[Rfam]
RNA: mir-7583 microRNA precursor family
Organism: Caenorhabditis briggsae
RNA sequence: ACUUACAAAUAUCGCAUUGGCAUCAAAAGGUAUCUUUGCCAUCCGACAUUUGUGGUUGA
Numbered sequence: 001a002c003u004u005a006c007a008a009a010u011a012u013c014g015c016a017u018u019g020g021c022a023u024c025a026a027a028a029g030g031u032a033u034c035u036u037u038g039c040c041a042u043c044c045g046a047c048a049u050u051u052g053u054g055g056u057u058g059a
Stems, first nucleotide, its partner, number of pairs: 001057001003055008012046003018041005025033001